[Rfam]
RNA sequence: AUAUAAGAAAAACUUUACUUUUUAGAUUCAUGGAAUGAUUGAUGUAUUUGGUCCAUAUUUUAUACCAAAUACAUCAUUCAUUCCAUGAAUCUAAAAAGCAAAAAUUUUCUUAUAU
Numbered sequence: 001a002u003a004u005a006a007g008a009a010a011a012a013c014u015u016u017a018c019u020u021u022u023u024a025g026a027u028u029c030a031u032g033g034a035a036u037g038a039u040u041g042a043u044g045u046a047u048u049u050g051g052u053c054c055a056u057a058u059u060u061u062a063u064a065c066c067a068a069a070u071a072c073a074u075c076a077u078u079c080a081u082u083c084c085a086u087g088a089a090u091c092u093a094a095a096a097a098g099c100a101a102a103a104a105u106u107u108u109c110u111u112a113u114a115u
Base pairs, nucleotide, nucleotide: 002114003113004112005111006110007109009107010106011105015101016100018098019097020096021095022094023093024092025091027089028088029087030086031085032084033083034082035081036080037079038078040076041075042074043073044072049067050066051065052064
MIR2593 microRNA precursor family: a 115-nucleotide sequence from Trifolium medium.
Gene Ontology terms of the family: miRNA-mediated post-transcriptional gene silencing and RISC complex.